[Rfam]
RNA sequence: GCCUGUUCAUCUACCCUGUGGUACCGAGUUGUGUCUGAGUAUUAGCAAACACAAUCGGUCACUGGGUGAAAGACCUUGCUC
Numbered sequence: 001g002c003c004u005g006u007u008c009a010u011c012u013a014c015c016c017u018g019u020g021g022u023a024c025c026g027a028g029u030u031g032u033g034u035c036u037g038a039g040u041a042u043u044a045g046c047a048a049a050c051a052c053a054a055u056c057g058g059u060c061a062c063u064g065g066g067u068g069a070a071a072g073a074c075c076u077u078g079c080u081c
Stems, first nucleotide, its partner, number of pairs: 012068004018062004024058002028056001030054001032053003036049001039046002
mir-57 microRNA precursor family: an 81-nucleotide sequence from Onchocerca flexuosa. The literature on the family includes a 2019 paper in Nucleic Acids Res by Kozomara et al., "miRBase: from microRNA sequences to function". Gene Ontology terms of the family: RISC complex and miRNA-mediated post-transcriptional gene silencing.